[Rfam]
Nucleotides: 053
Base pairs, nucleotide, nucleotide: 030050031049032048033046034045035044036043037042
Number, partner (000 for none) and nucleotide at each position: 001000a002000a003000a004000u005000g006000u007000g008000c009000u010000c011000u012000u013000u014000u015000a016000g017000u018000a019000u020000u021000u022000g023000u024000c025000c026000a027000g028000u029000a030050g031049g032048u033046u034045u035044c036043c037042u038000c039000a040000a041000g042037g043036g044035g045034a046033a047000a048032g049031c050030c051000c052000c053000c